[Rfam]
RNA sequence: CUCUCAAUCUACUACAAGCCUUUCAAAUCUUUUCAAGACUUUUCAGUCAAACCACUACCAACUUUUACAAUGUCUCCCUGCUCGUGCAACUGCUGCUCCGGCAACUGCAACUCUUGCUCUUGCGGCUCGUGCAAGGUAUGCCUUCUCUUCUCUAUC
Numbered sequence: 001c002u003c004u005c006a007a008u009c010u011a012c013u014a015c016a017a018g019c020c021u022u023u024c025a026a027a028u029c030u031u032u033u034c035a036a037g038a039c040u041u042u043u044c045a046g047u048c049a050a051a052c053c054a055c056u057a058c059c060a061a062c063u064u065u066u067a068c069a070a071u072g073u074c075u076c077c078c079u080g081c082u083c084g085u086g087c088a089a090c091u092g093c094u095g096c097u098c099c100g101g102c103a104a105c106u107g108c109a110a111c112u113c114u115u116g117c118u119c120u121u122g123c124g125g126c127u128c129g130u131g132c133a134a135g136g137u138a139u140g141c142c143u144u145c146u147c148u149u150c151u152c153u154a155u156c
Stems, first nucleotide, its partner, number of pairs: 079103004086096003107132003116123002
RNA: A. fumigatus sRNA Afu_254